[Rfam]
RNA: Bacterial large subunit ribosomal RNA, nucleotides 1864 to 2224
Organism: Knoellia aerolata
Nucleotides: 361
Base pairs, nucleotide, nucleotide: 001361002360003359004358009356010355011354012353013352014351015350016349018347019346020345035059036058037057038056039055044049060099061098062097076084077083100104112340113339114338115337116336117335118334119332120331123137124136125135140175141174142173143172144171145170146169147168148165152161153160154159178327179326180325181324183257184256185255188254189253190250191249192248193247194246197245198244199243203239204238209233210232211231212230215226216225217224218223258276259275260274261273262272263271277281287314297313298312299311300310301309302308
Number, partner (000 for none) and nucleotide at each position: 001361c002360g003359a004358g005000u006000g007000a008000a009356u010355c011354a012353u013352g014351g015350u016349u017000a018347a019346g020345g021000a022000a023000c024000u025000c026000g027000g028000c029000a030000a031000a032000a033000u034000a035059c036058c037057c038056c039055c040000g041000u042000a043000a044049c045000u046000u047000c048000g049044g050000g051000a052000g053000a054000a055039g056038g057037g058036g059035g060099g061098c062097c063000c064000g065000g066000a067000u068000c069000c070000u071000g072000a073000a074000g075000u076084g077083a078000c079000u080000a081000g082000c083077u084076c085000a086000c087000u088000a089000g090000g091000g092000a093000g094000a095000a096000c097062g098061g099060c100104c101000g102000c103000a104100g105000a106000g107000a108000c109000c110000a111000g112340g113339g114338a115337g116336a117335a118334g119332c120331g121000a122000c123137u124136g125135u126000u127000u128000a129000c130000u131000a132000a133000a134000a135125a136124c137123a138000c139000a140175g141174g142173u143172c144171c145170g146169u147168g148165c149000u150000a151000a152161g153160u154159c155000g156000c157000a158000a159154g160153a161152c162000g163000a164000u165148g166000u167000a168147u169146a170145c171144g172143g173142a174141c175140u176000g177000a178327c179326g180325c181324c182000u183257g184256c185255c186000c187000g188254g189253u190250g191249c192248u193247g194246g195000a196000a197245g198244g199243u200000u201000a202000a203239g204238a205000g206000g207000a208000c209233g210232g211231g212230u213000u214000a215226g216225a217224u218223c219000u220000u221000a222000g223218g224217g225216u226215c227000g228000a229000a230212g231211c232210u233209c234000a235000g236000a237000a238204u239203u240000u241000a242000a243199g244198c245197c246194c247193c248192a249191g250190u251000a252000a253189a254188c255185g256184g257183c258276g259275g260274u261273g262272g263271u264000a265000a266000c267000u268000a269000u270000a271263a272262c273261c274260a275259u276258c277281c278000u279000a280000a281277g282000g283000u284000a285000g286000c287314g288000a289000a290000a291000u292000u293000c294000c295000u296000u297313g298312u299311c300310g301309g302308g303000u304000a305000a306000g307000u308302u309301c310300c311299g312298a313297c314287c315000u316000g317000c318000a319000c320000g321000a322000a323000u324181g325180g326179c327178g328000u329000a330000a331120c332119g333000a334118c335117u336116u337115c338114u339113c340112c341000a342000c343000u344000g345020u346019c347018u348000c349016a350015a351014c352013c353012a354011u355010g356009a357000a358004c359003u360002c361001g